[Rfam]
RNA sequence: CUUUAAAAAUCUGGAUCAAGCUGAAAAUUGAAACGACACACUUAAGGUGUGUUCGAGUCUCUCAAAUUAUCGCAAUGCGGCGAUGUUUUACGAAACAUCUUCGG
Number, nucleotide and partner (000 for none) at each position: 001c000002u000003u000004u000005a000006a000007a000008a000009a000010u000011c000012u000013g000014g000015a000016u000017c000018a000019a000020g073021c072022u000023g071024a070025a000026a068027a067028u066029u065030g000031a000032a000033a000034c055035g054036a053037c000038a052039c051040a050041c049042u046043u000044a000045a000046g042047g000048u000049g041050u040051g039052u038053u036054c035055g034056a000057g000058u000059c000060u000061c000062u000063c000064a000065a029066a028067u027068u026069a000070u024071c023072g021073c020074a000075a000076u000077g000078c103079g102080g101081c000082g099083a098084u097085g096086u000087u000088u000089u000090a000091c000092g000093a000094a000095a000096c085097a084098u083099c082100u000101u080102c079103g078104g000

The record is a 104-nucleotide RNA from Pluralibacter pyrinus, which matches "Salmonella enterica Typhi npcRNA 44" in Rfam. The base pairs follow the family's consensus structure, which was predicted with CMfinder. The literature on the family includes a 2010 paper in Nucleic Acids Res by Chinni et al., "Experimental identification and characterization of 97 novel npcRNA candidates in Salmonella enterica serovar Typhi". Rfam 15.1 lists 474 matches to the family in 137 species. By type it is a non-coding RNA gene. Taxonomically the source falls in Pluralibacter (Bacteria, Pseudomonadati, Gammaproteobacteria, Enterobacterales).